[Rfam]
RNA sequence: GAGGAAAAGAAGGAGCAACCCGCUUCUCGCCUGAUUGACGCUAAUGAGCAGUUGGCAGGUUUCGAAUUCAUCACAUUCAAAACUAUUCAUACGUGAAUGUAAGUGCGGGUAUCUCAGCCCGCACUUUUUAUUUGUU
Numbered sequence: 001g002a003g004g005a006a007a008a009g010a011a012g013g014a015g016c017a018a019c020c021c022g023c024u025u026c027u028c029g030c031c032u033g034a035u036u037g038a039c040g041c042u043a044a045u046g047a048g049c050a051g052u053u054g055g056c057a058g059g060u061u062u063c064g065a066a067u068u069c070a071u072c073a074c075a076u077u078c079a080a081a082a083c084u085a086u087u088c089a090u091a092c093g094u095g096a097a098u099g100u101a102a103g104u105g106c107g108g109g110u111a112u113c114u115c116a117g118c119c120c121g122c123a124c125u126u127u128u129u130a131u132u133u134g135u136u
Stems, first nucleotide, its partner, number of pairs: 011027006029060003037053003040049002104123007

This 136-nucleotide RNA from Bacillus sp. FJAT-49736 belongs to the Rfam family "Ribosomal protein L20 leader".
The literature on the family includes a 1994 paper in Prog Nucleic Acid Res Mol Biol by Zengel and Lindahl, "Diverse mechanisms for regulating ribosomal protein synthesis in Escherichia coli".
The base pairs follow the family's consensus structure, which was predicted with CMfinder.
It scores 70 bits against the family's covariance model.